Background: A member of the RNA family "Streptomyces sRNA scr5239" from Streptomyces beijiangensis, 162 nucleotides long. For this family Rfam cites "Identification of metE as a second target of the sRNA scr5239 in Streptomyces coelicolor" (Vockenhuber et al., PLoS One, 2015). The family's RNA type in Rfam is small RNA. The match comes from Rfam's covariance-model search (109 bits).
RNA sequence: CUUCCGCUCUCCCCGCACAGGAGAGUGGAGACGAGGUACGCGGCGCUCUCUGCCCUGACUGCGCCAAGUCCUCCCCUUCGACCGGUGGACCGCACAUCCUCCGGCCGAUGCAACUCCGGGCUGCGGUGUCGGCCGGACGGGCUGAGGGUCCCGUCCGCUCAG
Dot-bracket structure: ..((((.(((((.......))))).))))...((((.(...((.((((........))..)).))...)))))....(((.(((..(((.......)))..))).)))....(((.((...)).))).......(((((((........)))))))......